A member of the RNA family "Bacterial large subunit ribosomal RNA" from Lactococcus garvieae, 259 nucleotides of a longer RNA. The family's consensus secondary structure is taken from published work. Lineage of the source: Bacteria > Bacillota > Bacilli > Lactobacillales > Lactococcus garvieae. The match comes from Rfam's covariance-model search (2920 bits).
RNA sequence: GGAAAUUUGAGAGGAUCUGCCCUUAGUACGAGAGGACCGGGGUGGACUUACCUCUGGUGUACCAGUUGUUCCGCCAGGAGCACCGCUGGGUAGCUAUGUAGGGAAGGGAUAAGCGCUGAAAGCAUCUAAGUGCGAAGCCCACCUCAAGAUGAGAUUUCCCAUUCUUUAUGAAUUAAGAGCCCUGAGAGAUGAUCAGGUUGAUAGGCUGGAAGUGGAAGUCCUGCGAGGGAUGGAGCGGACCAGUACUAAUAGCUCGAGG
Numbered sequence: 001g002g003a004a005a006u007u008u009g010a011g012a013g014g015a016u017c018u019g020c021c022c023u024u025a026g027u028a029c030g031a032g033a034g035g036a037c038c039g040g041g042g043u044g045g046a047c048u049u050a051c052c053u054c055u056g057g058u059g060u061a062c063c064a065g066u067u068g069u070u071c072c073g074c075c076a077g078g079a080g081c082a083c084c085g086c087u088g089g090g091u092a093g094c095u096a097u098g099u100a101g102g103g104a105a106g107g108g109a110u111a112a113g114c115g116c117u118g119a120a121a122g123c124a125u126c127u128a129a130g131u132g133c134g135a136a137g138c139c140c141a142c143c144u145c146a147a148g149a150u151g152a153g154a155u156u157u158c159c160c161a162u163u164c165u166u167u168a169u170g171a172a173u174u175a176a177g178a179g180c181c182c183u184g185a186g187a188g189a190u191g192a193u194c195a196g197g198u199u200g201a202u203a204g205g206c207u208g209g210a211a212g213u214g215g216a217a218g219u220c221c222u223g224c225g226a227g228g229g230a231u232g233g234a235g236c237g238g239a240c241c242a243g244u245a246c247u248a249a250u251a252g253c254u255c256g257a258g259g
Base pairs, nucleotide, nucleotide: 001159002158003157004156005155006154007153008152011145012144013143014142017045018044019043020042021041022040023039047102048101049100050099051098055096056095057094062089063088064087065086066085067082068081069080070079071078072077106140107139108138113133114132115131116130117129162172163171164170174257177255178254179253180252181197182196183195184194185193202248203247204246205244206243207242208241209240212236218231219230220229221228222227